[Rfam]
Nucleotides: 403
Base pairs, nucleotide, nucleotide: 004158005157006156007155008154009153010152011151014146015145016144017143019049021047022046023045024044025043050105051104052103053102054101058098059097060096065092066091067090068089069088070085071084072083073082074081075080108140109139114134115133116132117131118130166296167295168294169293170292171291172290300401301400302399303398304397306320309317327394328393329392330391331390333387334386335385337380338379344374345373346372347371349370352367353366354365355364356363
Number, partner (000 for none) and nucleotide at each position: 001000a002000g003000u004158g005157u006156u007155g008154u009153u010152g011151c012000a013000a014146u015145a016144g017143u018000a019049a020000u021047u022046c023045a024044a025043u026000u027000u028000a029000g030000u031000a032000c033000g034000a035000g036000a037000g038000g039000a040000a041000c042000c043025g044024u045023u046022g047021a048000u049019u050105c051104g052103c053102a054101u055000a056000a057000u058098u059097g060096g061000u062000a063000u064000u065092u066091g067090c068089g069088g070085u071084u072083a073082g074081u075080u076000g077000a078000a079000a080075a081074g082073c083072u084071a085070g086000u087000g088069c089068c090067g091066c092065g093000a094000a095000g096060c097059u098058a099000c100000c101054a102053u103052g104051c105050g106000u107000a108140g109139g110000a111000u112000u113000a114134u115133g116132g117131c118130u119000g120000a121000a122000c123000g124000c125000c126000u127000c128000u129000a130118a131117g132116u133115c134114a135000g136000a137000a138000u139109c140108c141000a142000u143017g144016c145015u146014a147000a148000a149000a150000c151011g152010c153009g154008a155007c156006g157005a158004u159000u160000u161000u162000u163000a164000c165000c166296c167295u168294c169293a170292u171291u172290a173000u174000a175000u176000u177000u178000a179000c180000g181000c182000g183000a184000u185000u186000a187000c188000a189000a190000a191000u192000a193000g194000a195000g196000u197000u198000u199000g200000c201000u202000u203000c204000g205000g206000c207000a208000u209000u210000c211000u212000c213000c214000g215000g216000a217000a218000u219000c220000a221000u222000a223000c224000a225000a226000g227000a228000g229000g230000a231000c232000c233000c234000c235000g236000g237000u238000u239000c240000a241000g242000g243000c244000g245000u246000g247000g248000a249000a250000g251000u252000a253000u254000g255000u256000c257000c258000u259000g260000u261000u262000c263000u264000c265000g266000u267000c268000c269000u270000u271000g272000a273000a274000u275000g276000a277000u278000a279000a280000c281000u282000u283000c284000a285000a286000a287000u288000a289000u290172u291171a292170a293169u294168g295167a296166g297000g298000a299000u300401a301400a302399a303398u304397c305000c306320u307000u308000u309317g310000c311000a312000g313000a314000c315000g316000a317309c318000u319000u320306a321000a322000a323000u324000u325000u326000a327394u328393a329392a330391a331390c332000u333387a334386g335385g336000u337380a338379u339000u340000g341000u342000a343000a344374g345373c346372a347371g348000u349370a350000g351000a352367g353366u354365a355364g356363c357000c358000u359000u360000g361000u362000u363356g364355c365354u366353a367352c368000g369000a370349u371347c372346u373345g374344c375000u376000g377000a378000g379338a380337u381000u382000a383000a384000g385335c386334c387333u388000g389000u390331g391330u392329u393328u394327a395000c396000u397304g398303a399302u400301u401300u402000g403000u
About this RNA
Eukaryotic large subunit ribosomal RNA: a 403-nucleotide part of an RNA from Neocallimastix californiae. Rfam links the family to the GO terms structural constituent of ribosome and ribosome. NCBI's taxonomy places the organism under Eukaryota, Fungi, Neocallimastigomycota, Neocallimastigales, Neocallimastix. Pairs were carried over by alignment from the consensus structure, which is taken from published work.